Record summary: A member of the RNA family "Plastid-rpl16 group II-D1 intron" from Genlisea aurea, 47 nucleotides long. Rfam describes the family as follows. Plastid-rpl16 is a non-coding RNA (ncRNA) recognised in plastids. It was recognised in and intronic region of a ribosome rpl16 gene. The organism belongs to Genlisea, within Eukaryota.

RNA sequence: AAGAGCUUAGAGCCAAUAAAGACUAAGAAGAUUGACUCAUGAUUAAA
Numbered sequence: 001a002a003g004a005g006c007u008u009a010g011a012g013c014c015a016a017u018a019a020a021g022a023c024u025a026a027g028a029a030g031a032u033u034g035a036c037u038c039a040u041g042a043u044u045a046a047a
Base pairs, nucleotide, nucleotide: 007041010038011037012036014034015033016032017031
Dot-bracket structure: ......(..(((.((((.............)))).)))..)......